The record is a 169-nucleotide sequence from Desmophyllum pertusum, which matches "U1 spliceosomal RNA" in Rfam. Taxonomically the source falls in Desmophyllum (Eukaryota, Metazoa, Eumetazoa, Anthozoa). For this family Rfam cites "The uRNA database" (Zwieb, Nucleic Acids Res, 1997).
RNA sequence: AUACUUACAAUGCACUGGAGUAACUGUGAUCAUGAAGGCAGUUCUCCCGGAGCGAGGCCAACUCACCACGCACAAACAGGCUGAGCUUCGCGUGUUUCCCACGCGAGUGGGUGGCACGGUGUGAAAUUUUUGUUAGUCGGGCUGACCUGCGUUCGCGCUCGUGGCCCUU
Numbered sequence: 001a002u003a004c005u006u007a008c009a010a011u012g013c014a015c016u017g018g019a020g021u022a023a024c025u026g027u028g029a030u031c032a033u034g035a036a037g038g039c040a041g042u043u044c045u046c047c048c049g050g051a052g053c054g055a056g057g058c059c060a061a062c063u064c065a066c067c068a069c070g071c072a073c074a075a076a077c078a079g080g081c082u083g084a085g086c087u088u089c090g091c092g093u094g095u096u097u098c099c100c101a102c103g104c105g106a107g108u109g110g111g112u113g114g115c116a117c118g119g120u121g122u123g124a125a126a127u128u129u130u131u132g133u134u135a136g137u138c139g140g141g142c143u144g145a146c147c148u149g150c151g152u153u154c155g156c157g158c159u160c161g162u163g164g165c166c167c168u169u
Base pairs, nucleotide, nucleotide: 012122013121014120015119017047018046019045020044023042024041025040026039027038049089050088051087052086056082057081058080091118092117093116095113098110099109139167140166141165142164146161149158150157151156